Shown here is a 416-nucleotide part of an RNA from Thecamonas trahens, a member of the family "Eukaryotic large subunit ribosomal RNA".
RNA sequence: CGCUUGGUGGCGAGGAGCGGCCAGGCCUUGCGAGGCCUGGAGUUUAGCGCGUUGCGGGUGCGGGCUCUUGCGGCGAAGCGGCGAGCGGAACUCGACUGGUAGGUGGCCGGGCAACCGGGUGCUGGUACAGGGAGGUAGCUGGAGUCGUGGCCGGAAAGAGUGCGUGAUGAAGAGAGGCAGUGCCGGGCCGCAGGGAUGCGGCCGCAGAGUAGCAGAGGGCAGGGCAUGGAGGGCGUUUGAGGGUAGCCAGGGCUACGGGCCUGGCCAGCGUCAAGCGGUGGUUCCAUGGACUGGACUCUGCGAGUCUGGAGGCAGUGUCGAGCCCGUGGGGACUCGAGCGGGAUCGGAGUUGUUUUUAAAGACGUCGAGCUCGAGCGAGACUGGCGCGCCAUCAAUCGACCCGUCUUGAAACACGG
Numbered sequence: 001c002g003c004u005u006g007g008u009g010g011c012g013a014g015g016a017g018c019g020g021c022c023a024g025g026c027c028u029u030g031c032g033a034g035g036c037c038u039g040g041a042g043u044u045u046a047g048c049g050c051g052u053u054g055c056g057g058g059u060g061c062g063g064g065c066u067c068u069u070g071c072g073g074c075g076a077a078g079c080g081g082c083g084a085g086c087g088g089a090a091c092u093c094g095a096c097u098g099g100u101a102g103g104u105g106g107c108c109g110g111g112c113a114a115c116c117g118g119g120u121g122c123u124g125g126u127a128c129a130g131g132g133a134g135g136u137a138g139c140u141g142g143a144g145u146c147g148u149g150g151c152c153g154g155a156a157a158g159a160g161u162g163c164g165u166g167a168u169g170a171a172g173a174g175a176g177g178c179a180g181u182g183c184c185g186g187g188c189c190g191c192a193g194g195g196a197u198g199c200g201g202c203c204g205c206a207g208a209g210u211a212g213c214a215g216a217g218g219g220c221a222g223g224g225c226a227u228g229g230a231g232g233g234c235g236u237u238u239g240a241g242g243g244u245a246g247c248c249a250g251g252g253c254u255a256c257g258g259g260c261c262u263g264g265c266c267a268g269c270g271u272c273a274a275g276c277g278g279u280g281g282u283u284c285c286a287u288g289g290a291c292u293g294g295a296c297u298c299u300g301c302g303a304g305u306c307u308g309g310a311g312g313c314a315g316u317g318u319c320g321a322g323c324c325c326g327u328g329g330g331g332a333c334u335c336g337a338g339c340g341g342g343a344u345c346g347g348a349g350u351u352g353u354u355u356u357u358a359a360a361g362a363c364g365u366c367g368a369g370c371u372c373g374a375g376c377g378a379g380a381c382u383g384g385c386g387c388g389c390c391a392u393c394a395a396u397c398g399a400c401c402c403g404u405c406u407u408g409a410a411a412c413a414c415g416g
Stems, first nucleotide, its partner, number of pairs: 001398002004395009017266001020265009270381003275376002401416004

The organism belongs to Thecamonas trahens, within Eukaryota.